The record is a 232-nucleotide RNA from Tissierella creatinophila, which matches "T-box leader" in Rfam. By type it is a cis-regulatory leader. Rfam describes the family as follows. Uncharged tRNA acts as the effector for transcription antitermination of genes in the T-box leader family. T-boxes are found upstream of many aminoacyl-tRNA synthetase genes and some amino acid biosynthetic genes usually in Gram-positive bacteria. The anticodon of a specific tRNA base pairs to a specifier sequence within the T-box motif, and the NCCA acceptor tail of the tRNA base pairs to a conserved bulge in the T-box antiterminator hairpin.
[Rfam]
RNA sequence: AUUAAUACUAAGAUGAAGAAAAGUCUAUUUUAAGCAAAUUACAGAGAACUGGGAAAGAUGAGAACCAGGAUUAUGCUAAAUAGAACUUUAUCGCUUCAGAGUUUCAUGACUGAAAUAAGUAAGUUAUGACGUCAGCCUACGUUAUAAGGGAGGGUUUAGUUGAACCCCGUGAGAUAAUGAUUCGUGAGAACAUUAUAAUCUAGAGUGGUAACGCGCUAUAUGCGCCUCUAUU
Number, nucleotide and partner (000 for none) at each position: 001a000002u000003u000004a000005a000006u000007a102008c101009u000010a000011a000012g000013a000014u000015g097016a096017a095018g094019a000020a000021a000022a000023g000024u000025c000026u082027a081028u080029u079030u078031u000032a000033a000034g000035c000036a000037a072038a071039u070040u000041a000042c000043a000044g000045a000046g000047a000048a000049c068050u067051g066052g065053g000054a000055a000056a000057g000058a000059u000060g000061a000062g000063a000064a000065c052066c051067a050068g049069g000070a039071u038072u037073a000074u000075g000076c000077u000078a030079a029080a028081u027082a026083g000084a000085a000086c000087u000088u000089u000090a000091u000092c000093g000094c018095u017096u016097c015098a000099g000100a000101g008102u007103u000104u000105c128106a127107u126108g125109a124110c123111u122112g000113a000114a000115a000116u000117a000118a000119g000120u000121a000122a111123g110124u109125u108126a107127u106128g105129a000130c141131g140132u139133c000134a000135g000136c000137c000138u000139a132140c131141g130142u000143u000144a000145u000146a000147a000148g000149g000150g000151a000152g000153g000154g000155u000156u000157u000158a000159g000160u000161u000162g000163a000164a000165c000166c000167c000168c000169g000170u000171g000172a000173g000174a196175u195176a194177a193178u192179g191180a000181u000182u000183c000184g000185u000186g000187a000188g000189a000190a000191c179192a178193u177194u176195a175196u174197a000198a000199u000200c000201u000202a229203g228204a227205g226206u000207g000208g000209u000210a000211a000212c000213g225214c224215g223216c222217u000218a000219u000220a000221u000222g216223c215224g214225c213226c205227u204228c203229u202230a000231u000232u000
It scores 107 bits against the family's covariance model.
The base pairs follow the family's consensus structure, which is taken from published work.